The record is a 264-nucleotide RNA from Priestia megaterium, which matches "Bacterial large signal recognition particle RNA" in Rfam. The sequence is in the family's curated seed alignment. The family's consensus secondary structure is taken from published work. It is annotated as a non-coding RNA gene. Its Rfam clan is "SRP clan".

RNA sequence: CCGUGCUAAGCGGGGAGGUAGCGGUGCCCUGUACUCGCAAUCCGCUCUAGCAGGCCGAAUUCCUUCUUGAGGUUAGCUCAUCUUAGGGCCUGCCUUAAGUAAGUGGUGUUGACGUUUGGGUCCUACGCAAUGGGAAUCUGUGAACCCUGUCAGGUCCGGAAGGAAGCAGCAGUAAGCAGAACCUCUCAUGUGCCAUGGGGUCGCCUGAACCGAGCUAACUGCUUAAGUAACGCCUGGGGUGGCUAAUCGACAGAAGGUGCACGG
Numbered sequence: 001c002c003g004u005g006c007u008a009a010g011c012g013g014g015g016a017g018g019u020a021g022c023g024g025u026g027c028c029c030u031g032u033a034c035u036c037g038c039a040a041u042c043c044g045c046u047c048u049a050g051c052a053g054g055c056c057g058a059a060u061u062c063c064u065u066c067u068u069g070a071g072g073u074u075a076g077c078u079c080a081u082c083u084u085a086g087g088g089c090c091u092g093c094c095u096u097a098a099g100u101a102a103g104u105g106g107u108g109u110u111g112a113c114g115u116u117u118g119g120g121u122c123c124u125a126c127g128c129a130a131u132g133g134g135a136a137u138c139u140g141u142g143a144a145c146c147c148u149g150u151c152a153g154g155u156c157c158g159g160a161a162g163g164a165a166g167c168a169g170c171a172g173u174a175a176g177c178a179g180a181a182c183c184u185c186u187c188a189u190g191u192g193c194c195a196u197g198g199g200g201u202c203g204c205c206u207g208a209a210c211c212g213a214g215c216u217a218a219c220u221g222c223u224u225a226a227g228u229a230a231c232g233c234c235u236g237g238g239g240u241g242g243c244u245a246a247u248c249g250a251c252a253g254a255a256g257g258u259g260c261a262c263g264g
Stems, first nucleotide, its partner, number of pairs: 001264006010055002012030004017025001019023001034053002037051002062257006071248005078242010091229002095226006103219002105216003114210008122199004127194001128190002131188005137180005147172004155164003